[Rfam]
RNA sequence: ACUUAUACAUGACAACAUAACGGGUUGUCGACCUGCCUUAGGACCCAUCCAAAGACUAUAAGC
Numbered sequence: 001a002c003u004u005a006u007a008c009a010u011g012a013c014a015a016c017a018u019a020a021c022g023g024g025u026u027g028u029c030g031a032c033c034u035g036c037c038u039u040a041g042g043a044c045c046c047a048u049c050c051a052a053a054g055a056c057u058a059u060a061a062g063c
Base pairs, nucleotide, nucleotide: 002062003061004060005059006058007057008035011029012028013027014026015025016024022045023044030036037054038053039052041050042049043048
This 63-nucleotide RNA sequence from Mesoplasma florum belongs to the Rfam family "2dG-I riboswitch aptamer (M. florum)".
The match comes from Rfam's covariance-model search (74 bits).
On this family, see Kim et al., Proc Natl Acad Sci U S A 2007: "Guanine riboswitch variants from Mesoplasma florum selectively recognize 2'-deoxyguanosine".
Rfam links the family to the GO terms deoxyribonucleoside binding and regulation of DNA-templated transcription, termination.